[Rfam]
RNA sequence: CCUCUGGAAAGAGCUUCGGGCCACCCAUGGGGAACACCCUGAAAACAGGGUUAAACUCUCAGGUAAAAAGACAGAGG
Dot-bracket structure: ((((((......(((...))).(((.(..(((...((((........))))....))))..))).......))))))
The record is a 77-nucleotide RNA from Melghirimyces algeriensis, which matches "Glycine riboswitch aptamer" in Rfam. Lineage of the source: Bacteria > Bacillota > Bacilli > Thermoactinomycetaceae > Melghirimyces. The match comes from Rfam's covariance-model search (38 bits).